[Rfam]
RNA sequence: AAGAGCCUCGAGCCAAUAAAGAUCAAGAAGAUUGACUUAAAAAUAAA
Dot-bracket structure: .......(.(((.((((.............)))).))).).......
Shown here is a 47-nucleotide sequence from Corymbia citriodora, a member of the family "Plastid-rpl16 group II-D1 intron".
Rfam's curators write: Plastid-rpl16 is a non-coding RNA (ncRNA) recognised in plastids. It was recognised in and intronic region of a ribosome rpl16 gene.
Its family is annotated with Group II intron splicing in the Gene Ontology.
The family has 538 seed sequences and 1,446 matches in Rfam 15.1.
On this family, see Richter et al., Plant Commun 2023: "Retrograde signaling in plants: A critical review focusing on the GUN pathway and beyond".
A search with the family's covariance model found it, with a score of 59 bits.